Shown here is an 81-nucleotide RNA from Candidatus Borkfalkia ceftriaxoniphila, a member of the family "ZMP/ZTP riboswitch aptamer (pfl RNA motif)". A search with the family's covariance model found it, with a score of 49 bits.
RNA sequence: GAAUUUUUCCGCAACUGGUGGGUUUAGCAGGUCACUGCGUGGGAGCGGAAAAAAUUUUUGUCGACCACCUGGGCAGUAUCG
Numbered sequence: 001g002a003a004u005u006u007u008u009c010c011g012c013a014a015c016u017g018g019u020g021g022g023u024u025u026a027g028c029a030g031g032u033c034a035c036u037g038c039g040u041g042g043g044a045g046c047g048g049a050a051a052a053a054a055u056u057u058u059u060g061u062c063g064a065c066c067a068c069c070u071g072g073g074c075a076g077u078a079u080c081g
Stems, first nucleotide, its partner, number of pairs: 004053009015042002017069005027038004058076005
Background:
The organism belongs to Candidatus Borkfalkia, within Bacteria.